The record is an 89-nucleotide sequence from Myotis myotis, which matches "mir-9195 microRNA precursor family" in Rfam.
The family has 3 seed sequences and 438 matches in Rfam 15.1.
The source organism's lineage runs through Eukaryota, Bilateria, Chordata, Dipnotetrapodomorpha and Myotis.
A search with the family's covariance model found it, with a score of 94 bits.
The family's consensus secondary structure was predicted with RNAalifold.

RNA sequence: AGAGGCCCAUCUGCGGCCGGGUGCAGAAUGCUUGCCUCAUUGCCGUGGCUAUGAAGCAAGCAUUCCGCCAGGCCGCUCACACUGCCCAC
Dot-bracket structure: ...(((......((((((..(.((.((((((((((...((.((....)).))...)))))))))).))).)))))).......)))...
Numbered sequence: 001a002g003a004g005g006c007c008c009a010u011c012u013g014c015g016g017c018c019g020g021g022u023g024c025a026g027a028a029u030g031c032u033u034g035c036c037u038c039a040u041u042g043c044c045g046u047g048g049c050u051a052u053g054a055a056g057c058a059a060g061c062a063u064u065c066c067g068c069c070a071g072g073c074c075g076c077u078c079a080c081a082c083u084g085c086c087c088a089c
Stems, first nucleotide, its partner, number of pairs: 004086003013076006021069001023068002026065010039052002042049002